Histone 3' UTR stem-loop: a 47-nucleotide RNA from Ptilonorhynchus violaceus. About the family: The mRNAs of metazoan histone genes lack a poly-A tail. 3' end processing occurs at a site between a highly conserved stem-loop (modelled by this family) and a purine rich region around 20 nts downstream (the histone downstream element, or HDE). The stem-loop is bound by a 31 kDa stem-loop binding protein (SLBP - also termed the histone hairpin binding protein, or HBP). Together with U7 snRNA binding of the HDE, SLBP binding nucleate s the formation of the processing complex. The histone 3' UTR stem-loop is also involved in nucleocytoplasmic transport of the mRNA, and in stability regulation and translation efficiency in the cytoplasm. Pairs were carried over by alignment from the consensus structure, which is taken from published work. Rfam classes the family as a cis-regulatory element.
RNA sequence: CCAAAGGCUCUUUUAAGAGCCACUACACGCACAACGAAAGGAGCUGU
Numbered sequence: 001c002c003a004a005a006g007g008c009u010c011u012u013u014u015a016a017g018a019g020c021c022a023c024u025a026c027a028c029g030c031a032c033a034a035c036g037a038a039a040g041g042a043g044c045u046g047u
Stems, first nucleotide, its partner, number of pairs: 006021006